RNA sequence: AGAUUUGGUCGUAGAGCGCGACCAAGUAAAUCAAAAAAAAGCUCACUGAGA
Numbered sequence: 001a002g003a004u005u006u007g008g009u010c011g012u013a014g015a016g017c018g019c020g021a022c023c024a025a026g027u028a029a030a031u032c033a034a035a036a037a038a039a040a041g042c043u044c045a046c047u048g049a050g051a
Base pairs, nucleotide, nucleotide: 006024007023008022009021010020011019014044015043016042017041
The family of this 51-nucleotide sequence is "6A RNA". The base pairs follow the family's consensus structure, which is taken from published work.